[Rfam]
A member of the RNA family "MIR8565 microRNA precursor family" from Amborella trichopoda, 154 nucleotides long. Gene Ontology terms of the family: miRNA-mediated post-transcriptional gene silencing and RISC complex. Taxonomically the source falls in Amborella (Eukaryota, Tracheophyta, Euphyllophyta, Magnoliopsida). Pairs were carried over by alignment from the consensus structure, which was predicted with RNAalifold.
RNA sequence: CUUACACCCAUGUAUGUAUGACCCCAAAGGAUCACCAUUAAAUUUGAUACAGAUCUCUAGAAAAGUUAUCACAUAGGUGUGGGACUUGACUUUUUUAGUGAUCUGUGCCAAAUUUAAUAAUGAUCAUUUGGAGUCCUACAUACAUGGGUGUGGG
Numbered sequence: 001c002u003u004a005c006a007c008c009c010a011u012g013u014a015u016g017u018a019u020g021a022c023c024c025c026a027a028a029g030g031a032u033c034a035c036c037a038u039u040a041a042a043u044u045u046g047a048u049a050c051a052g053a054u055c056u057c058u059a060g061a062a063a064a065g066u067u068a069u070c071a072c073a074u075a076g077g078u079g080u081g082g083g084a085c086u087u088g089a090c091u092u093u094u095u096u097a098g099u100g101a102u103c104u105g106u107g108c109c110a111a112a113u114u115u116a117a118u119a120a121u122g123a124u125c126a127u128u129u130g131g132a133g134u135c136c137u138a139c140a141u142a143c144a145u146g147g148g149u150g151u152g153g154g
Stems, first nucleotide, its partner, number of pairs: 002153012015140004020135003024131005030125003034121001037118010048107008057098012069082005